[Rfam]
RNA sequence: GGUCGGGUAGCGAGCAGCUAUACAAUACCUCUGCCGAGGAGGGAAAAAUGCUGGCCGUCUUACUGCGGUGUUCAAGUACCCGACCACCCAUCU
Numbered sequence: 001g002g003u004c005g006g007g008u009a010g011c012g013a014g015c016a017g018c019u020a021u022a023c024a025a026u027a028c029c030u031c032u033g034c035c036g037a038g039g040a041g042g043g044a045a046a047a048a049u050g051c052u053g054g055c056c057g058u059c060u061u062a063c064u065g066c067g068g069u070g071u072u073c074a075a076g077u078a079c080c081c082g083a084c085c086a087c088c089c090a091u092c093u
Base pairs, nucleotide, nucleotide: 001085002084003083004082005081006080007079008078009077013052014051015050016049019046028042029041030040031039032038054069055068056067057066058065
This 93-nucleotide sequence from Candidatus Fukatsuia symbiotica belongs to the Rfam family "sRNA-Xcc1". The literature on the family includes a 2011 paper in RNA Biol by Chen et al., "sRNA-Xcc1, an integron-encoded transposon- and plasmid-transferred trans-acting sRNA, is under the positive control of the key virulence regulators HrpG and HrpX of Xanthomonas campestris pathovar campestris". The source organism's lineage runs through Bacteria, Pseudomonadati, Pseudomonadota, Enterobacterales and Candidatus Fukatsuia. It scores 75 bits against the family's covariance model.